A member of the RNA family "Small nucleolar RNA SNORA53" from Coregonus sp. 'balchen', 238 nucleotides long. Rfam's curators write: The snoRNA ACA53 belongs to the H/ACA family of pseudouridylation guide snoRNAs. The base pairs follow the family's consensus structure, which was predicted with RNAalifold. By type it is an H/ACA-box small nucleolar RNA.
[Rfam]
RNA sequence: AACACGCUCCUUAGAUCCACCUCUGGGGGGCGCUCCUGGUCUGUUGAGUCUGCUAUCGCUCUCUCUGAGUGCUGACUGCAGCUCCAGCCCAGACGCUCCCAGCAGCUUUCUGGCUGUACAGUUGGAGGUGCUUGAGUCAUUGGCGUGUGAGAACAGUCUACCUGCUCCCCAGCCCACUCCCUGCACUGGCACCCUCGCUGGAAAACUACCAGUGCAGACAGGCUGGGGAGCGGACAAC
Numbered sequence: 001a002a003c004a005c006g007c008u009c010c011u012u013a014g015a016u017c018c019a020c021c022u023c024u025g026g027g028g029g030g031c032g033c034u035c036c037u038g039g040u041c042u043g044u045u046g047a048g049u050c051u052g053c054u055a056u057c058g059c060u061c062u063c064u065c066u067g068a069g070u071g072c073u074g075a076c077u078g079c080a081g082c083u084c085c086a087g088c089c090c091a092g093a094c095g096c097u098c099c100c101a102g103c104a105g106c107u108u109u110c111u112g113g114c115u116g117u118a119c120a121g122u123u124g125g126a127g128g129u130g131c132u133u134g135a136g137u138c139a140u141u142g143g144c145g146u147g148u149g150a151g152a153a154c155a156g157u158c159u160a161c162c163u164g165c166u167c168c169c170c171a172g173c174c175c176a177c178u179c180c181c182u183g184c185a186c187u188g189g190c191a192c193c194c195u196c197g198c199u200g201g202a203a204a205a206c207u208a209c210c211a212g213u214g215c216a217g218a219c220a221g222g223c224u225g226g227g228g229a230g231c232g233g234a235c236a237a238c
Stems, first nucleotide, its partner, number of pairs: 002148007010136005018130008027100004037092001039090001043088004048084001050081004056075001058070004102117006162233005169226001171224004181217009